[Rfam]
RNA sequence: GCGUACGUAGGUUGUGAUUGGUGUCAAUAUUCGUCCGUUUUCCGCUGCAAUAUUGCACUUUUCCCGGCCUACGUAUGU
Numbered sequence: 001g002c003g004u005a006c007g008u009a010g011g012u013u014g015u016g017a018u019u020g021g022u023g024u025c026a027a028u029a030u031u032c033g034u035c036c037g038u039u040u041u042c043c044g045c046u047g048c049a050a051u052a053u054u055g056c057a058c059u060u061u062u063c064c065c066g067g068c069c070u071a072c073g074u075a076u077g078u
Base pairs, nucleotide, nucleotide: 001078002077003076004075005074006073007072010069011068013066014065016063017062020059021058023056025055026054027053028052029051030050031049
The record is a 78-nucleotide RNA sequence from Diaphorina citri, which matches "mir-310 microRNA precursor family" in Rfam.
Pairs were carried over by alignment from the consensus structure, which was predicted with RNAalifold.
Its Rfam clan is "mir-92 microRNA precursor clan".